[Rfam]
RNA sequence: AAGUCCUUUAAUAGCAGUCCCGUGAGGCUGGGAAGGAAGCGGAUAAUGGUCAAGUGUAUUGAAUUAUACCUUGAUUUAUGGAACAGUCGUUUACCCUCUCGCCAAAUCGGCGAGAGGGUUUUUAUAU
Numbered sequence: 001a002a003g004u005c006c007u008u009u010a011a012u013a014g015c016a017g018u019c020c021c022g023u024g025a026g027g028c029u030g031g032g033a034a035g036g037a038a039g040c041g042g043a044u045a046a047u048g049g050u051c052a053a054g055u056g057u058a059u060u061g062a063a064u065u066a067u068a069c070c071u072u073g074a075u076u077u078a079u080g081g082a083a084c085a086g087u088c089g090u091u092u093a094c095c096c097u098c099u100c101g102c103c104a105a106a107u108c109g110g111c112g113a114g115a116g117g118g119u120u121u122u123u124a125u126a127u
Base pairs, nucleotide, nucleotide: 004037005036006035007034008033009032015030016029017028018027019026046077048075050073052071054069055068056067057066058065093119094118095117096116097115098114099113100112101111102110103109